[Rfam]
RNA sequence: CUAUGUUGUUCAUGAUUAUUAUGUUUCUAUCUCAUUAUCUCAUAGAACAGA
Numbered sequence: 001c002u003a004u005g006u007u008g009u010u011c012a013u014g015a016u017u018a019u020u021a022u023g024u025u026u027c028u029a030u031c032u033c034a035u036u037a038u039c040u041c042a043u044a045g046a047a048c049a050g051a
Base pairs, nucleotide, nucleotide: 006050007049008048009047010046011045